[Rfam]
RNA sequence: GCACGUUCUCAGGGCGGGGUGAAAGUCCCCACCGGCGGUAAGGUGGCAACACCAAGCCCGCGAGCGCGCCGCGACACGGUGGUCAGCAGAUCCGGUGCGAUUCCGGAGCCGACGGUAUAGUCCGGAUGAAAGAGAACGGGA
Numbered sequence: 001g002c003a004c005g006u007u008c009u010c011a012g013g014g015c016g017g018g019g020u021g022a023a024a025g026u027c028c029c030c031a032c033c034g035g036c037g038g039u040a041a042g043g044u045g046g047c048a049a050c051a052c053c054a055a056g057c058c059c060g061c062g063a064g065c066g067c068g069c070c071g072c073g074a075c076a077c078g079g080u081g082g083u084c085a086g087c088a089g090a091u092c093c094g095g096u097g098c099g100a101u102u103c104c105g106g107a108g109c110c111g112a113c114g115g116u117a118u119a120g121u122c123c124g125g126a127u128g129a130a131a132g133a134g135a136a137c138g139g140g141a
Stems, first nucleotide, its partner, number of pairs: 004138007017029003031121002033111002035061004056109002064087002091107005113124003